[Rfam]
RNA sequence: UAGCACAUAUUGCAGCAUGUGCAUUGAUUUUUAAAAUGCACAUGCUGCAAUAUGUGCUUACU
Numbered sequence: 001u002a003g004c005a006c007a008u009a010u011u012g013c014a015g016c017a018u019g020u021g022c023a024u025u026g027a028u029u030u031u032u033a034a035a036a037u038g039c040a041c042a043u044g045c046u047g048c049a050a051u052a053u054g055u056g057c058u059u060a061c062u
Stems, first nucleotide, its partner, number of pairs: 003057014018042005
RNA: RNA-OUT